[Rfam]
RNA sequence: CCCGCCACUAUGCCUGUCUGUCAGAGUGACUGAGUAUAAUCCAGUGGAGGCUCAGAACAACCCAACUUUAGGAAACAGAGCUGCCCAAACUAAUGGACAACCCUGUGCCGAAAAGUCUGGAACACAA
Numbered sequence: 001c002c003c004g005c006c007a008c009u010a011u012g013c014c015u016g017u018c019u020g021u022c023a024g025a026g027u028g029a030c031u032g033a034g035u036a037u038a039a040u041c042c043a044g045u046g047g048a049g050g051c052u053c054a055g056a057a058c059a060a061c062c063c064a065a066c067u068u069u070a071g072g073a074a075a076c077a078g079a080g081c082u083g084c085c086c087a088a089a090c091u092a093a094u095g096g097a098c099a100a101c102c103c104u105g106u107g108c109c110g111a112a113a114a115g116u117c118u119g120g121a122a123c124a125c126a127a
Base pairs, nucleotide, nucleotide: 005047006046007045008044009043018034019033020031021029022028062120063119064118066115067114068113069112071109072108076105077104078103080101085096086095
RNA: Small nucleolar RNA SNORA65